[Rfam]
The family of this 154-nucleotide sequence from Amborella trichopoda is "MIR8565 microRNA precursor family". The match comes from Rfam's covariance-model search (136 bits). Taxonomically the source falls in Amborella (Eukaryota, Viridiplantae, Tracheophyta, Euphyllophyta). The family's consensus secondary structure was predicted with RNAalifold. Rfam links the family to the GO terms miRNA-mediated post-transcriptional gene silencing and RISC complex.
RNA sequence: CCCACACCCAUGUGUGUAGGACCCCAAAGGAUCACCAUUAAAUUUGACACCGAUCUUUAGAAAAGUUAUCAUAUAUGUGUGGGACUUGACUUUUCUAGAGAUCUUUGCCAAAUUUAAUGAUGAUCCUUUGAAAUCCUACACACAUGGGUGUAGA
Numbered sequence: 001c002c003c004a005c006a007c008c009c010a011u012g013u014g015u016g017u018a019g020g021a022c023c024c025c026a027a028a029g030g031a032u033c034a035c036c037a038u039u040a041a042a043u044u045u046g047a048c049a050c051c052g053a054u055c056u057u058u059a060g061a062a063a064a065g066u067u068a069u070c071a072u073a074u075a076u077g078u079g080u081g082g083g084a085c086u087u088g089a090c091u092u093u094u095c096u097a098g099a100g101a102u103c104u105u106u107g108c109c110a111a112a113u114u115u116a117a118u119g120a121u122g123a124u125c126c127u128u129u130g131a132a133a134u135c136c137u138a139c140a141c142a143c144a145u146g147g148g149u150g151u152a153g154a
Stems, first nucleotide, its partner, number of pairs: 002153001004151010015140007025130004030125003034121001036119011048107002052103017069082005